A member of the RNA family "Archaeal large subunit ribosomal RNA" from Candidatus Micrarchaeum sp. AZ1, 437 nucleotides of a longer RNA. The organism belongs to Candidatus Micrarchaeum, within Archaea. The family's consensus secondary structure is taken from published work.
[Rfam]
RNA sequence: CCCUCUGAAGUAUCUUUAGGAUAGCUCUGGGCGAGCUUGCACAUGCGGUAGAGCUACCGAUUAGCGGGUACGGGGUCGAAAGGCCUCCCUCGCUCGUCAAACUCCGAAUGCAUGCGCUGUGUAGACCCCAGGAGUCGGCGGUGUUGGGUAAGCUAGCACCGCGAGACUACAAAGAUAGUGACUAGGGUUAAGGUCCCCAAAUCCUAAUUGAGUGUGUGAAAGGUGGGGAAUGCCGUAGACAGCUGGGAGGUAGGCUCAGAAGCAGCCAUCCUUCAAAAAACGCGUAAUAGCGUACCAGUUGAGGCAUACCUUGCCGAAAAUAUACGGGGCUAAAUUAGGUACCGAGACCCUAGAGUGCGAUAAGCACUGGUAAGGGGGCGUGCGGCAUGGCACGAAGUAUGUCCGGAAGGACAUAUGGACUAUGCUGCAGAGAAUAU
Numbered sequence: 001c002c003c004u005c006u007g008a009a010g011u012a013u014c015u016u017u018a019g020g021a022u023a024g025c026u027c028u029g030g031g032c033g034a035g036c037u038u039g040c041a042c043a044u045g046c047g048g049u050a051g052a053g054c055u056a057c058c059g060a061u062u063a064g065c066g067g068g069u070a071c072g073g074g075g076u077c078g079a080a081a082g083g084c085c086u087c088c089c090u091c092g093c094u095c096g097u098c099a100a101a102c103u104c105c106g107a108a109u110g111c112a113u114g115c116g117c118u119g120u121g122u123a124g125a126c127c128c129c130a131g132g133a134g135u136c137g138g139c140g141g142u143g144u145u146g147g148g149u150a151a152g153c154u155a156g157c158a159c160c161g162c163g164a165g166a167c168u169a170c171a172a173a174g175a176u177a178g179u180g181a182c183u184a185g186g187g188u189u190a191a192g193g194u195c196c197c198c199a200a201a202u203c204c205u206a207a208u209u210g211a212g213u214g215u216g217u218g219a220a221a222g223g224u225g226g227g228g229a230a231u232g233c234c235g236u237a238g239a240c241a242g243c244u245g246g247g248a249g250g251u252a253g254g255c256u257c258a259g260a261a262g263c264a265g266c267c268a269u270c271c272u273u274c275a276a277a278a279a280a281c282g283c284g285u286a287a288u289a290g291c292g293u294a295c296c297a298g299u300u301g302a303g304g305c306a307u308a309c310c311u312u313g314c315c316g317a318a319a320a321u322a323u324a325c326g327g328g329g330c331u332a333a334a335u336u337a338g339g340u341a342c343c344g345a346g347a348c349c350c351u352a353g354a355g356u357g358c359g360a361u362a363a364g365c366a367c368u369g370g371u372a373a374g375g376g377g378g379c380g381u382g383c384g385g386c387a388u389g390g391c392a393c394g395a396a397g398u399a400u401g402u403c404c405g406g407a408a409g410g411a412c413a414u415a416u417g418g419a420c421u422a423u424g425c426u427g428c429a430g431a432g433a434a435u436a437u
Stems, first nucleotide, its partner, number of pairs: 001378006011023005025134001026132006035120002039117002042114005051105001052103002059098003063094006072087006138162009167178003182353007192343003201340001203339006222315007230307005242299005248272003253267003273277001278293001282291002354368005379432001381429010397416008